[Rfam]
This 374-nucleotide RNA from Nocardioides sp. Root614 belongs to the Rfam family "Bacterial RNase P class A".

RNA sequence: CGGGCUGGUCGGGCGACCGCGUGAUCUCCGCCGUGAGGCGACAGGUCCCGAGGAAAGUCCGGGCUCCACAGAGCAGGGUGGUGGGUAACACCCACCCGGGGUGACCCGCGGGAAAGUGCCACAGAAAACAGACCGCCGCCGCUCUCCGGAGCAGCGGUAAGGGUGAAACGGUGGGGCAAGAGCCCACCAGUGCCUCGGGUGACCGGGGCAGCUAGGCAAACCCCACCCGGAGCAAGACCAGACAGCACGCGUUCGAGGGCUGCUCGCCCGAGCGUGCGGGUAGGUUGCUGGAGGCUGUCGGCAACGGCAGCCGUAGAUGGAUGGUCGCCGGCUCGAAAGAGUCACAGAACCCGGCUUACAGACCAGCCCGUCCA
Numbered sequence: 001c002g003g004g005c006u007g008g009u010c011g012g013g014c015g016a017c018c019g020c021g022u023g024a025u026c027u028c029c030g031c032c033g034u035g036a037g038g039c040g041a042c043a044g045g046u047c048c049c050g051a052g053g054a055a056a057g058u059c060c061g062g063g064c065u066c067c068a069c070a071g072a073g074c075a076g077g078g079u080g081g082u083g084g085g086u087a088a089c090a091c092c093c094a095c096c097c098g099g100g101g102u103g104a105c106c107c108g109c110g111g112g113a114a115a116g117u118g119c120c121a122c123a124g125a126a127a128a129c130a131g132a133c134c135g136c137c138g139c140c141g142c143u144c145u146c147c148g149g150a151g152c153a154g155c156g157g158u159a160a161g162g163g164u165g166a167a168a169c170g171g172u173g174g175g176g177c178a179a180g181a182g183c184c185c186a187c188c189a190g191u192g193c194c195u196c197g198g199g200u201g202a203c204c205g206g207g208g209c210a211g212c213u214a215g216g217c218a219a220a221c222c223c224c225a226c227c228c229g230g231a232g233c234a235a236g237a238c239c240a241g242a243c244a245g246c247a248c249g250c251g252u253u254c255g256a257g258g259g260c261u262g263c264u265c266g267c268c269c270g271a272g273c274g275u276g277c278g279g280g281u282a283g284g285u286u287g288c289u290g291g292a293g294g295c296u297g298u299c300g301g302c303a304a305c306g307g308c309a310g311c312c313g314u315a316g317a318u319g320g321a322u323g324g325u326c327g328c329c330g331g332c333u334c335g336a337a338a339g340a341g342u343c344a345c346a347g348a349a350c351c352c353g354g355c356u357u358a359c360a361g362a363c364c365a366g367c368c369c370g371u372c373c374a
Base pairs, nucleotide, nucleotide: 001370002369003368004367005366006365007364008363009362010361011359012329013328014327015326016325017324018323020050021049023047024046025045026044027043055357056356057355059354060353061352062351063350064232065231066230067229071265072264073263074262076228077227078226079225080224081095082094083093084092085091096110097108098107099106100105111223112222116221117220118217119216120215133162134161135158136157137156138155139154141152142151143150170188171187172186173185174184175183190212191210192209193208194207195206196205197204198203236286237285238284239283245277246276247275248274249273250272257269258268259267260266293312294311295310296309297308298307299306300305